[Rfam]
RNA sequence: UUUUUUUCGCUAAGGAGCUCCUAUGCGAAAACUGACGGUUGCUCUGAUAGUUAGCCUGAUAGGGUUGAUUGCACUGUUUGUGUCGACCACGGCUGCUACAUGUGGCGGGACUUCUGGUUUUGGCUAUUCGAACCUAAAGUAACCGCCUCGCCCGAAUGCGCUGAGCGCGCACAAAAAAAGCCUUCAUCUGGUGAUGAAGGCUUUUUACU
Number, nucleotide and partner (000 for none) at each position: 001u000002u035003u034004u031005u030006u029007u028008c027009g026010c025011u000012a000013a022014g021015g020016a000017g000018c000019u000020c015021c014022u013023a000024u000025g010026c009027g008028a007029a006030a005031a004032c000033u000034g003035a002036c000037g056038g055039u054040u000041g051042c050043u049044c000045u000046g000047a000048u000049a043050g042051u041052u000053a000054g039055c038056c037057u000058g000059a000060u000061a000062g153063g152064g151065u150066u000067g000068a000069u000070u000071g099072c000073a097074c095075u000076g000077u000078u092079u091080g090081u089082g088083u000084c000085g000086a000087c000088c082089a081090c080091g079092g078093c000094u000095g074096c000097u073098a000099c071100a000101u000102g000103u000104g000105g146106c145107g144108g143109g000110a000111c139112u138113u137114c000115u000116g000117g000118u000119u000120u000121u000122g000123g000124c000125u000126a000127u000128u000129c000130g000131a000132a000133c000134c000135u000136a000137a113138a112139g111140u000141a000142a000143c108144c107145g106146c105147c000148u000149c000150g065151c064152c063153c062154g000155a000156a000157u000158g170159c169160g168161c167162u000163g000164a000165g000166c000167g161168c160169g159170c158171a000172c000173a000174a000175a206176a205177a204178a203179a202180g201181c200182c199183u198184u197185c196186a195187u194188c193189u000190g000191g000192u000193g188194a187195u186196g185197a184198a183199g182200g181201c180202u179203u178204u177205u176206u175207a000208c000209u000
This 209-nucleotide sequence from Candidatus Paraburkholderia kirkii belongs to the Rfam family "Burkholderia sRNA 11". The family's RNA type in Rfam is small RNA. The base pairs follow the family's consensus structure, which was predicted with RNAfold. From the family's description: Identified by RNA-seq, RACE and Northern blot. On this family, see Yoder-Himes et al., Proc Natl Acad Sci U S A 2009: "Mapping the Burkholderia cenocepacia niche response via high-throughput sequencing".